The family of this 185-nucleotide RNA from Streptomyces hoynatensis is "c-di-AMP riboswitch aptamer (ydaO/yuaA leader)". Lineage of the source: Bacteria > Actinomycetota > Kitasatosporales > Streptomycetaceae > Streptomyces. This family represents a conserved RNA structure found upstream of the ydaO and yuaA genes in Bacillus subtilis and related genes in other bacteria.
[Rfam]
RNA sequence: GCGGAAAAGCCGCCUUACCGCGUGACAGGAGCGGGGGACCCACCUUUCCGCCGGACCGAAGCACCCGUUCCGGCUUGGGGUGAAGCCACCGCCGAACCGGGCGCCCGCGCGCCCGGGUUGCGGCGGCGGCCGGGCAACUCCGGCCCGAACCCGACAGCUCACCUCGCAGGCGUCGGAGAGGAGCA
Dot-bracket structure: ..........((((....(.........).((((((....((.................................))(((.....((.((((((..........................)))))).))..((((.......))))...))).........)))))).)))).............